[Rfam]
RNA: Bacterial RNase P class A
Nucleotides: 390
Base pairs, nucleotide, nucleotide: 001386002385003384004383005382006381007380008379009378010377011375012324013323014322015321016320017319018318020039021038023036024035025034026033027032044373045372046371048370049369050368051367052366053225054224055223056222062258066221067220068219069218070217071085072084073083074082075081086110087108088107089106090105091104092103093102094101095100111216112215116214117213118210119209120208133156134155135152136151137150138149139148141146164182165181166180167179168178169177183205184203185202186201188199189198190197191196229281230280231279232278239272240271241270242269243268244267250264251263252262253261254260288307289306290305291304292303293302294301295300
Number, partner (000 for none) and nucleotide at each position: 001386c002385c003384a004383g005382a006381g007380g008379g009378c010377c011375g012324g013323g014322c015321g016320g017319c018318c019000g020039c021038c022000g023036g024035u025034g026033c027032g028000g029000u030000g031000a032027c033026g034025c035024a036023c037000g038021g039020g040000a041000g042000g043000a044373a045372a046371g047000u048370c049369c050368g051367g052366g053225c054224u055223c056222c057000g058000c059000a060000g061000a062258g063000c064000a065000a066221c067220g068219g069218u070217g071085c072084c073083g074082g075081g076000u077000a078000a079000c080000a081075c082074c083073c084072g085071g086110c087108g088107g089106c090105u091104c092103c093102g094101g095100g096000u097000u098000c099000g100095c101094u102093u103092g104091g105090g106089g107088u108087c109000a110086g111216g112215g113000a114000c115000a116214g117213u118210g119209c120208c121000a122000c123000a124000g125000a126000a127000a128000g129000c130000a131000g132000a133156c134155c135152g136151c137150c138149g139148g140000u141146c142000u143000u144000c145000g146141g147000u148139c149138c150137g151136g152135c153000a154000a155134g156133g157000g158000c159000g160000a161000a162000a163000g164182g165181g166180u167179g168178c169177g170000g171000c172000a173000a174000g175000a176000g177169c178168g179167c180166a181165c182164c183205g184203c185202g186201g187000g188199g189198c190197u191196g192000g193000c194000a195000a196191c197190a198189g199188c200000a201186c202185c203184g204000g205183c206000a207000c208120g209119g210118c211000a212000a213117a214116c215112c216111c217070c218069a219068c220067c221066g222056g223055g224054a225053g226000c227000a228000a229281g230280a231279c232278c233000g234000a235000a236000u237000a238000g239272g240271g241270a242269c243268g244267g245000c246000g247000c248000a249000u250264g251263g252262c253261g254260u255000g256000g257000c258062u259000c260254g261253c262252g263251c264250c265000g266000g267244u268243c269242g270241u271240c272239c273000g274000g275000g276000u277000u278232g279231g280230u281229c282000g283000c284000u285000u286000g287000a288307g289306g290305c291304g292303g293302c294301g295300c296000g297000c298000a299000a300295g301294c302293g303292u304291c305290g306289u307288c308000u309000u310000a311000g312000a313000g314000g315000a316000a317000u318018g319017g320016u321015c322014g323013c324012c325000c326000a327000u328000c329000c330000g331000c332000g333000g334000g335000c336000u337000c338000c339000c340000g341000a342000a343000a344000a345000u346000g347000g348000g349000g350000c351000g352000g353000g354000c355000g356000g357000u358000g359000g360000a361000c362000a363000g364000a365000a366052c367051c368050c369049g370048g371046c372045u373044u374000a375011c376000a377010g378009g379008c380007c381006c382005u383004c384003u385002g386001g387000c388000g389000c390000u